[Rfam]
RNA sequence: UCUCGGUCCGAGGGGCGUCCCGCUGCGAUGCGGGGCUGAGAUGGCGACACGCCGAUCCCUUAGAACCUGAUCCGGGUCAUGCCGGCGAAGGGACGGGAACCUGCGAGCGG
Numbered sequence: 001u002c003u004c005g006g007u008c009c010g011a012g013g014g015g016c017g018u019c020c021c022g023c024u025g026c027g028a029u030g031c032g033g034g035g036c037u038g039a040g041a042u043g044g045c046g047a048c049a050c051g052c053c054g055a056u057c058c059c060u061u062a063g064a065a066c067c068u069g070a071u072c073c074g075g076g077u078c079a080u081g082c083c084g085g086c087g088a089a090g091g092g093a094c095g096g097g098a099a100c101c102u103g104c105g106a107g108c109g110g
Stems, first nucleotide, its partner, number of pairs: 007097004011060004016054001017036007043053004066091003072085004
RNA: TPP riboswitch aptamer (THI element)
Organism: Chenggangzhangella methanolivorans